Overview
The record is a 169-nucleotide sequence from Tumebacillus algifaecis, which matches "glmS glucosamine-6-phosphate activated ribozyme aptamer" in Rfam. Lineage of the source: Bacteria > Bacillati > Caryophanales > Alicyclobacillaceae > Tumebacillus.
RNA sequence: CAUAUUGACCAAGCGCCUGAACUGGACGCACGGACGGAAACAGCGAGCCAGUUGACGAGGUGGAGGAGUAUCGAACAUCGGCGGAUGCCUCCCGGUGUAUAGCCGCACCGAAAGAGCGUUUUCGAAAUCCGACAGGUGACUGACGGGACAAGGAACGUUUUGGCUACUA
Numbered sequence: 001c002a003u004a005u006u007g008a009c010c011a012a013g014c015g016c017c018u019g020a021a022c023u024g025g026a027c028g029c030a031c032g033g034a035c036g037g038a039a040a041c042a043g044c045g046a047g048c049c050a051g052u053u054g055a056c057g058a059g060g061u062g063g064a065g066g067a068g069u070a071u072c073g074a075a076c077a078u079c080g081g082c083g084g085a086u087g088c089c090u091c092c093c094g095g096u097g098u099a100u101a102g103c104c105g106c107a108c109c110g111a112a113a114g115a116g117c118g119u120u121u122u123c124g125a126a127a128u129c130c131g132a133c134a135g136g137u138g139a140c141u142g143a144c145g146g147g148a149c150a151a152g153g154a155a156c157g158u159u160u161u162g163g164c165u166a167c168u169a
Base pairs, nucleotide, nucleotide: 020053021052022051023050024049025048029043062092063091064090065089066088071081072080073079074078093110094109095108096107097106098105115159116158117157118156119155120154121153129146130145131144133142134141135140